Shown here is a 54-nucleotide sequence from Coregonus sp. 'balchen', a member of the family "UnaL2 LINE 3' element".
On this family, see Baba et al., RNA 2004: "Solution structure of an RNA stem-loop derived from the 3' conserved region of eel LINE UnaL2".
Pairs were carried over by alignment from the consensus structure, which is taken from published work.
A search with the family's covariance model found it, with a score of 67 bits.
Rfam classes the family as a cis-regulatory element.
RNA sequence: AAAAUGUAUGACUGUAAGUCGCUUUGGAUAAAAGCGUCUGCUAAGUGACAUAUU
Numbered sequence: 001a002a003a004a005u006g007u008a009u010g011a012c013u014g015u016a017a018g019u020c021g022c023u024u025u026g027g028a029u030a031a032a033a034g035c036g037u038c039u040g041c042u043a044a045g046u047g048a049c050a051u052a053u054u
Base pairs, nucleotide, nucleotide: 013043014041015040016039020036021035022034023033024032025031